[Rfam]
The family of this 132-nucleotide RNA sequence from Oncorhynchus kisutch is "Small nucleolar RNA SNORA3/SNORA45 family".

RNA sequence: AGCGAGGCUAGAGUCACGUCUUUACAACCCUCAUUGUCCUGGUGUGCUAGAGUGCUCGCAUAGUAAACUUCUUUGCAUAUUCAUUGGCUGUAGUCUCUUGUGUCCCAGUCAAUCACCAGCUCAGAAAUAUGU
Numbered sequence: 001a002g003c004g005a006g007g008c009u010a011g012a013g014u015c016a017c018g019u020c021u022u023u024a025c026a027a028c029c030c031u032c033a034u035u036g037u038c039c040u041g042g043u044g045u046g047c048u049a050g051a052g053u054g055c056u057c058g059c060a061u062a063g064u065a066a067a068c069u070u071c072u073u074u075g076c077a078u079a080u081u082c083a084u085u086g087g088c089u090g091u092a093g094u095c096u097c098u099u100g101u102g103u104c105c106c107a108g109u110c111a112a113u114c115a116c117c118a119g120c121u122c123a124g125a126a127a128u129a130u131g132u
Base pairs, nucleotide, nucleotide: 002059003058004057005056006055007053008052009051012048013047015046016045017044018043019042020041024037025036026035071124072123075120076119083113084112085111086110087109089107090106093103094102
The members of this family belong to the H/ACA class of snoRNAs which are thought to guide the sites of modification of uridines to pseudouridines. This family includes mouse snoMBI-28 and human homologues ACA3 (SNORA3) and ACA3-2 (SNORA45). Both ACA3 and ACA3-2 share the same host gene. MBI-28, ACA3 and ACA3-2 are all predicted to guide the pseudouridylation of residues in 28S rRNA. For this family Rfam cites "RNomics: an experimental approach that identifies 201 candidates for novel, small, non-messenger RNAs in mouse" (Huttenhofer et al., EMBO J, 2001).